[Rfam]
RNA sequence: GUUGCGGAGUGCUAUAUCAACGAGAGUAGCUUCGGCAAAAUCGGGCACUAUGAAACAACGA
Numbered sequence: 001g002u003u004g005c006g007g008a009g010u011g012c013u014a015u016a017u018c019a020a021c022g023a024g025a026g027u028a029g030c031u032u033c034g035g036c037a038a039a040a041u042c043g044g045g046c047a048c049u050a051u052g053a054a055a056c057a058a059c060g061a
Base pairs, nucleotide, nucleotide: 001059002058003057004056009048010047011046012045013044021043022042023041029036030035